[Rfam]
RNA: Fluoride riboswitch aptamer (crcB RNA motif)
Organism: Sediminitomix flava
RNA sequence: UUUGUGAUAAGCGAUGGGGUUCGCUUUAAAUGCCAACUGGCUUGGCUGAUGACUCCUACUUUAGU
Numbered sequence: 001u002u003u004g005u006g007a008u009a010a011g012c013g014a015u016g017g018g019g020u021u022c023g024c025u026u027u028a029a030a031u032g033c034c035a036a037c038u039g040g041c042u043u044g045g046c047u048g049a050u051g052a053c054u055c056c057u058a059c060u061u062u063a064g065u
Stems, first nucleotide, its partner, number of pairs: 010025004016056006032046004